[Rfam]
Nucleotides: 032
Base pairs, nucleotide, nucleotide: 001032003030004029005028006027007026009025010024011023012021013020014018
Number, partner (000 for none) and nucleotide at each position: 001032a002000g003030g004029u005028u006027u007026u008000c009025a010024g011023u012021g013020a014018c015000a016000g017000u018014g019000u020013u021012u022000g023011a024010c025009u026007a027006a028005a029004a030003u031000g032001u
The record is a 32-nucleotide RNA sequence from Sphaeramia orbicularis, which matches "Iron response element II" in Rfam. Rfam 15.1 lists 5,197 matches to the family in 722 species. IRE, TFRC, SLC40A1, SDHB, SLC11A2, CDC42BPA, ACO2, ALAS2_H.SAPIENS, CDC14A, EPAS1, ALAS2, qoxD, Hao1, NDUFS1, transferrin, Aconitate. Rfam links the family to the GO term response to iron ion. A search with the family's covariance model found it, with a score of 30 bits.